[Rfam]
Nucleotides: 082
Stems, first nucleotide, its partner, number of pairs: 005023005045076006
Number, partner (000 for none) and nucleotide at each position: 001000a002000c003000a004000a005023u006022g007021g008020g009019g010000c011000u012000g013000c014000g015000a016000u017000c018000a019009c020008c021007c022006c023005a024000c025000g026000a027000g028000g029000c030000g031000u032000c033000a034000g035000c036000c037000g038000a039000a040000g041000a042000a043000u044000c045076g046075c047074g048073u049072c050071c051000a052000u053000u054000c055000a056000a057000c058000c059000c060000a061000a062000a063000a064000c065000c066000a067000g068000g069000g070000a071050g072049g073048a074047c075046g076045c077000g078000u079000u080000a081000u082000g